[Rfam]
Nucleotides: 111
Stems, first nucleotide, its partner, number of pairs: 004016001006014003048104006063091002066084004
Number, partner (000 for none) and nucleotide at each position: 001000a002000a003000g004016u005000a006014u007013u008012u009000u010000u011000a012008a013007a014006a015000g016004a017000a018000a019000a020000u021000a022000c023000u024000c025000u026000c027000c028000a029000a030000c031000a032000g033000c034000a035000u036000u037000c038000c039000a040000g041000a042000g043000u044000a045000a046000c047000u048104g049103g050102a051101g052100a053099g054000a055000c056000u057000u058000u059000g060000a061000c062000a063091g064090c065000c066084c067083a068082g069081g070000c071000c072000a073000g074000c075000a076000c077000a078000g079000u080000g081069u082068c083067u084066g085000c086000a087000g088000c089000u090064g091063c092000c093000u094000c095000u096000c097000g098000a099053c100052u101051u102050u103049c104048c105000u106000a107000u108000a109000u110000a111000u